RNA sequence: UGAUCAGAUAGAGGUGCGGGGAUUAUGAAACUGCAGUGAGCUGGCUGGCGAUAAACUGCAGGGGAGGAAUACCCGCCGAAGCGGCCGUGCCCUGGCCAGGGCGGCUGCUGGGGUUGUAUUGAAUAAAUACAACACUGUCAUCCGGGUUUCCCACCAUUGGAUGAAGCGCUAUCUCACAG
Numbered sequence: 001u002g003a004u005c006a007g008a009u010a011g012a013g014g015u016g017c018g019g020g021g022a023u024u025a026u027g028a029a030a031c032u033g034c035a036g037u038g039a040g041c042u043g044g045c046u047g048g049c050g051a052u053a054a055a056c057u058g059c060a061g062g063g064g065a066g067g068a069a070u071a072c073c074c075g076c077c078g079a080a081g082c083g084g085c086c087g088u089g090c091c092c093u094g095g096c097c098a099g100g101g102c103g104g105c106u107g108c109u110g111g112g113g114u115u116g117u118a119u120u121g122a123a124u125a126a127a128u129a130c131a132a133c134a135c136u137g138u139c140a141u142c143c144g145g146g147u148u149u150c151c152c153a154c155c156a157u158u159g160g161a162u163g164a165a166g167c168g169c170u171a172u173c174u175c176a177c178a179g
Stems, first nucleotide, its partner, number of pairs: 006174006016076005022070003031061007080109009090099001110136002113133008138164007
RNA: Lysine riboswitch aptamer
Organism: Propionispora vibrioides